[Rfam]
RNA sequence: GGCCUCCCUCUGUGGGGCGAUCGAUCACGGGGCCCCCAGAUCGAUCACCCCACCCAUCUCGGGCUCCAUGAUUGAUCACCAUGCAGAGGGUGGCC
Numbered sequence: 001g002g003c004c005u006c007c008c009u010c011u012g013u014g015g016g017g018c019g020a021u022c023g024a025u026c027a028c029g030g031g032g033c034c035c036c037c038a039g040a041u042c043g044a045u046c047a048c049c050c051c052a053c054c055c056a057u058c059u060c061g062g063g064c065u066c067c068a069u070g071a072u073u074g075a076u077c078a079c080c081a082u083g084c085a086g087a088g089g090g091u092g093g094c095c
Base pairs, nucleotide, nucleotide: 001095002094003093004092006090007089008088009087010086011085012084013083014082016080017079019077020076021075022074023073024072025071026070027069029067030066031065032064033063034062035061
RNA: mir-9242 microRNA precursor family